[Rfam]
RNA sequence: UGGCUACAAAAUAACUUAUUCUAUAGCUACUUUGAGUUACGAUAAUUACUAUGUUAAUUUACGAUAUUAUAGUAACUCCUUACUAAGUGGUUUACUAUAGCGUUAUAGUAAAUAUCCUCAUGUGUUAUAGUAACCCAACUAUCGUAAAUUAUUAUAUAAAAUUAUCGUAGAUGGAGAUGGCUACAGAAUAACUUAUUCUGUAGUUG
Numbered sequence: 001u002g003g004c005u006a007c008a009a010a011a012u013a014a015c016u017u018a019u020u021c022u023a024u025a026g027c028u029a030c031u032u033u034g035a036g037u038u039a040c041g042a043u044a045a046u047u048a049c050u051a052u053g054u055u056a057a058u059u060u061a062c063g064a065u066a067u068u069a070u071a072g073u074a075a076c077u078c079c080u081u082a083c084u085a086a087g088u089g090g091u092u093u094a095c096u097a098u099a100g101c102g103u104u105a106u107a108g109u110a111a112a113u114a115u116c117c118u119c120a121u122g123u124g125u126u127a128u129a130g131u132a133a134c135c136c137a138a139c140u141a142u143c144g145u146a147a148a149u150u151a152u153u154a155u156a157u158a159a160a161a162u163u164a165u166c167g168u169a170g171a172u173g174g175a176g177a178u179g180g181c182u183a184c185a186g187a188a189u190a191a192c193u194u195a196u197u198c199u200g201u202a203g204u205u206g
Base pairs, nucleotide, nucleotide: 001206002205003204004203005202006201007200008199010197011196012195013194014193016191017190018189019188020187021186022185024183025182026181027180028179029178031176032175033174037170038169039168040167041166042165043164044163045162046161047160065156066155067154069152070151071150074149080147081146082145083144087142088141089140090139091138092137093132094131095130096129097128098127099126100125101124102123103122108116
Dot-bracket structure: ((((((((.(((((.(((((((.((((((.(((...(((((((((((.................(((.(((..(.....((((...(((((((((((((((((....(.......).....)))))))))))....)))))).)))).)))).)))...)))))))))))...))).)))))).))))))).))))).))))))))